[Rfam]
RNA sequence: AACUUACUAGGGCAAAAUCGCUGAAAAGUGAUGACGCAAAGCUAUAGGGGCUUCUGUCUAUGUACAAAGCCAGCCAGCUACCAUC
Numbered sequence: 001a002a003c004u005u006a007c008u009a010g011g012g013c014a015a016a017a018u019c020g021c022u023g024a025a026a027a028g029u030g031a032u033g034a035c036g037c038a039a040a041g042c043u044a045u046a047g048g049g050g051c052u053u054c055u056g057u058c059u060a061u062g063u064a065c066a067a068a069g070c071c072a073g074c075c076a077g078c079u080a081c082c083a084u085c
Base pairs, nucleotide, nucleotide: 012037013036017032018031019030020029021028022027040079041078042077043076047075048074049071050070051069056065057064
This 85-nucleotide RNA sequence from Bacillus sp. cl95 belongs to the Rfam family "c-di-GMP-I riboswitch aptamer". The family's consensus secondary structure is taken from published work. Rfam 15.1 lists 5,092 matches to the family in 1,772 species.